[Rfam]
RNA sequence: UUCACCGUGCUGUCCCACUCGGGCGCCUCCUCCUCGCCGAGGAGGGCCUGGUCGCCGAAGAAGUCGCCGUCGGCGAGCGUGCCGUGCACCGCCUCGGUGCCGUACUCGCCCGCGGUGACGCGGCUGAGCUUGCCGUGCGCGACGAGGACGACCUUGUCGACGGGCCGGCCCUCCUCGACGAUGACCUCCCCGGGCUCGUACUCGUGCUGGACGAACCGUCCGGCGAGGGCGUCGAGGGCCAGGUCGUCGUCGUAGCCGCGCAGCGGCGGCAGCUCGCAGAGCUCGCGGGGGAUGACGCGGACGUCGGCGCCGGUCGACACGAAGGUGACCCGGCCGUCGCCGAGCGUGUAGGUGAGCCGGCGGUUGACCCGGUAGGCGCCGCCCUUCGCCUCCACCCAGGGCAGCAUCCGCAGCAGCCAGCGGGAGGUGAUGCCCUGCAUCUGGGGGACGGUCUUGGUCGUGGUCGCCAGGUUCCGUGCCGCCGAGGUACCGAGGCUCAACUGCUGUUCCG
Numbered sequence: 001u002u003c004a005c006c007g008u009g010c011u012g013u014c015c016c017a018c019u020c021g022g023g024c025g026c027c028u029c030c031u032c033c034u035c036g037c038c039g040a041g042g043a044g045g046g047c048c049u050g051g052u053c054g055c056c057g058a059a060g061a062a063g064u065c066g067c068c069g070u071c072g073g074c075g076a077g078c079g080u081g082c083c084g085u086g087c088a089c090c091g092c093c094u095c096g097g098u099g100c101c102g103u104a105c106u107c108g109c110c111c112g113c114g115g116u117g118a119c120g121c122g123g124c125u126g127a128g129c130u131u132g133c134c135g136u137g138c139g140c141g142a143c144g145a146g147g148a149c150g151a152c153c154u155u156g157u158c159g160a161c162g163g164g165c166c167g168g169c170c171c172u173c174c175u176c177g178a179c180g181a182u183g184a185c186c187u188c189c190c191c192g193g194g195c196u197c198g199u200a201c202u203c204g205u206g207c208u209g210g211a212c213g214a215a216c217c218g219u220c221c222g223g224c225g226a227g228g229g230c231g232u233c234g235a236g237g238g239c240c241a242g243g244u245c246g247u248c249g250u251c252g253u254a255g256c257c258g259c260g261c262a263g264c265g266g267c268g269g270c271a272g273c274u275c276g277c278a279g280a281g282c283u284c285g286c287g288g289g290g291g292a293u294g295a296c297g298c299g300g301a302c303g304u305c306g307g308c309g310c311c312g313g314u315c316g317a318c319a320c321g322a323a324g325g326u327g328a329c330c331c332g333g334c335c336g337u338c339g340c341c342g343a344g345c346g347u348g349u350a351g352g353u354g355a356g357c358c359g360g361c362g363g364u365u366g367a368c369c370c371g372g373u374a375g376g377c378g379c380c381g382c383c384c385u386u387c388g389c390c391u392c393c394a395c396c397c398a399g400g401g402c403a404g405c406a407u408c409c410g411c412a413g414c415a416g417c418c419a420g421c422g423g424g425a426g427g428u429g430a431u432g433c434c435c436u437g438c439a440u441c442u443g444g445g446g447g448a449c450g451g452u453c454u455u456g457g458u459c460g461u462g463g464u465c466g467c468c469a470g471g472u473u474c475c476g477u478g479c480c481g482c483c484g485a486g487g488u489a490c491c492g493a494g495g496c497u498c499a500a501c502u503g504c505u506g507u508u509c510c511g
Stems, first nucleotide, its partner, number of pairs: 007395003012390001014388001019333001021331002028328002031325002034322002042318001045315004051311001053309006060239001064235003068231003071117002074114001081109001083108002086105001088103002091100002124227002129222001132219002135216002137212001140209002144205001146203001150201001158198002163195001165193004171183001174180001246296006256288005262283003266277003335348003359383005368376002397437007405429003409424001411422001413421001443482001445480002448477004453471006486510002490506001492504001493502002
RNA: Saccharopolyspora sRNA 350
Organism: Actinomadura sp. WAC 06369